[Rfam]
RNA sequence: UGUAAAUGUAACUGUAAGUCGCUCUGGAUAAGAGUGUCUGCUAAAUGACAUGUA
Number, nucleotide and partner (000 for none) at each position: 001u000002g000003u000004a000005a000006a000007u000008g000009u000010a000011a000012c000013u043014g041015u040016a039017a000018g000019u000020c036021g035022c034023u033024c032025u031026g000027g000028a000029u000030a000031a025032g024033a023034g022035u021036g020037u000038c000039u016040g015041c014042u000043a013044a000045a000046u000047g000048a000049c000050a000051u000052g000053u000054a000
RNA: UnaL2 LINE 3' element